The record is a 178-nucleotide sequence from Synechococcales cyanobacterium C42_A2020_086, which matches "Antisense RNA which regulates isiA expression" in Rfam. The family has 308 seed sequences and 3,397 matches in Rfam 15.1. Pairs were carried over by alignment from the consensus structure, which was predicted with PFOLD. The literature on the family includes a 2006 paper in Proc Natl Acad Sci U S A by Duhring et al., "An internal antisense RNA regulates expression of the photosynthesis gene isiA".
RNA sequence: GGUAGCCGUAAAUUACGAGCGGAUCCAGAGUGGGUUGGGUCACCAAACGCACAUCCUGGAUCACUGAAUCAUACAGUCCGCCCCAGUACAUGGCUUUGGCAACCAGCAGCAGAGCACCUGCCCCCAAAAACAGUAGAUGAUGCCCUAAAAUAAAGCCCAAUUUCUGGGGAUCUCCCCA
Numbered sequence: 001g002g003u004a005g006c007c008g009u010a011a012a013u014u015a016c017g018a019g020c021g022g023a024u025c026c027a028g029a030g031u032g033g034g035u036u037g038g039g040u041c042a043c044c045a046a047a048c049g050c051a052c053a054u055c056c057u058g059g060a061u062c063a064c065u066g067a068a069u070c071a072u073a074c075a076g077u078c079c080g081c082c083c084c085a086g087u088a089c090a091u092g093g094c095u096u097u098g099g100c101a102a103c104c105a106g107c108a109g110c111a112g113a114g115c116a117c118c119u120g121c122c123c124c125c126a127a128a129a130a131c132a133g134u135a136g137a138u139g140a141u142g143c144c145c146u147a148a149a150a151u152a153a154a155g156c157c158c159a160a161u162u163u164c165u166g167g168g169g170a171u172c173u174c175c176c177c178a
Stems, first nucleotide, its partner, number of pairs: 136175001139172003144169003148165001